[Rfam]
A member of the RNA family "Iron response element II" from Dicrurus megarhynchus, 31 nucleotides long.
It scores 31 bits against the family's covariance model.
For this family Rfam cites "A cytosolic protein binds to structural elements within the iron regulatory region of the transferrin receptor mRNA" (Koeller et al., Proc Natl Acad Sci U S A, 1989).
About the family: IRE, TFRC, SLC40A1, SDHB, SLC11A2, CDC42BPA, ACO2, ALAS2_H.SAPIENS, CDC14A, EPAS1, ALAS2, qoxD, Hao1, NDUFS1, transferrin, Aconitate.
The source organism's lineage runs through Eukaryota, Craniata, Aves, Telluraves and Dicrurus.
The family has 30 seed sequences and 5,197 matches in Rfam 15.1.
Rfam links the family to the GO term response to iron ion.
Pairs were carried over by alignment from the consensus structure, which is taken from published work.

RNA sequence: ACUUUUUCUGAAGCAGUGUCUUCGAAAAAGG
Numbered sequence: 001a002c003u004u005u006u007u008c009u010g011a012a013g014c015a016g017u018g019u020c021u022u023c024g025a026a027a028a029a030g031g
Base pairs, nucleotide, nucleotide: 002030003029004028005027006026007025009024010023011022012021013020014018